This 121-nucleotide RNA sequence from Lactococcus garvieae belongs to the Rfam family "PyrR binding site". Its family is annotated with pyrimidine nucleobase transport and pyrimidine nucleobase biosynthetic process in the Gene Ontology. Pairs were carried over by alignment from the consensus structure, which is taken from published work. The organism belongs to Lactococcus garvieae, within Bacteria. Rfam describes the family as follows. This family represents the PyrR binding site and terminator structure. This RNA structure is found upstream of a variety of genes involved in pyrimidine biosynthesis and transport. The alignment also includes a portion of the antiterminator structure. Rfam classes the family as a cis-regulatory element. The match comes from Rfam's covariance-model search (57 bits).

RNA sequence: AUAACCUUUAAGUGUGUCCAGAGAGGCAGGCAAGGUCAGAAUCUUGAAUGAACUUAAUUAAAGUAUAUUAUAGAGUAUUUUCUGAUACCUUCCCUAGCCCUUGGACUAGGGAAUUUUUCUA
Numbered sequence: 001a002u003a004a005c006c007u008u009u010a011a012g013u014g015u016g017u018c019c020a021g022a023g024a025g026g027c028a029g030g031c032a033a034g035g036u037c038a039g040a041a042u043c044u045u046g047a048a049u050g051a052a053c054u055u056a057a058u059u060a061a062a063g064u065a066u067a068u069u070a071u072a073g074a075g076u077a078u079u080u081u082c083u084g085a086u087a088c089c090u091u092c093c094c095u096a097g098c099c100c101u102u103g104g105a106c107u108a109g110g111g112a113a114u115u116u117u118u119c120u121a
Stems, first nucleotide, its partner, number of pairs: 004036005013030001015028004042074003047069004052064004087116001090113008099104001
Dot-bracket structure: ...(((((....(.((((......)))).).))))).....(((..((((.((((.....)))).))))..)))............(..((((((((.(....).))))))))..).....